[Rfam]
Record summary:
A member of the RNA family "Small nucleolar RNA SNORD11B" from Conger conger, 85 nucleotides long. The base pairs follow the family's consensus structure, which was predicted with WAR. The source organism's lineage runs through Eukaryota, Craniata, Actinopterygii, Congridae and Conger. The family has 37 seed sequences and 733 matches in Rfam 15.1. The family is grouped with related families in Rfam's "SNORD11 clan". Rfam classes the family as a C/D-box small nucleolar RNA.
RNA sequence: UACAAGCGGUGAUGAUGAUGACAUUCUGUCACAGCCCUGAAAUCUACAUGUGGGUCUUUCAGUCACUACCUCAUCUGAGCUUGUG
Numbered sequence: 001u002a003c004a005a006g007c008g009g010u011g012a013u014g015a016u017g018a019u020g021a022c023a024u025u026c027u028g029u030c031a032c033a034g035c036c037c038u039g040a041a042a043u044c045u046a047c048a049u050g051u052g053g054g055u056c057u058u059u060c061a062g063u064c065a066c067u068a069c070c071u072c073a074u075c076u077g078a079g080c081u082u083g084u085g
Base pairs, nucleotide, nucleotide: 002084003083004082005081006080007079